Rfam assigns this 92-nucleotide sequence to the family "malK-III RNA".

RNA sequence: CCCGAGCGGCUCACGUACGGGGCCCGUCCACGUCCGCCUCGGCGGCUGGAUGCAUGGGCCCGCGAUGGACGGCCGGGGAUCGGAGGGCCAUG
Number, nucleotide and partner (000 for none) at each position: 001c000002c000003c000004g000005a000006g000007c000008g000009g000010c000011u000012c000013a000014c064015g063016u062017a000018c000019g000020g061021g060022g059023c058024c057025c056026g051027u050028c049029c000030a000031c000032g000033u000034c045035c044036g043037c042038c000039u000040c000041g000042g037043c036044g035045g034046c000047u000048g000049g028050a027051u026052g000053c000054a000055u000056g025057g024058g023059c022060c021061c020062g016063c015064g014065a000066u000067g000068g000069a000070c000071g000072g000073c000074c000075g000076g000077g000078g000079a000080u000081c000082g000083g000084a000085g000086g000087g000088c000089c000090a000091u000092g000
The family's consensus secondary structure is taken from published work.
Rfam classes the family as a cis-regulatory element.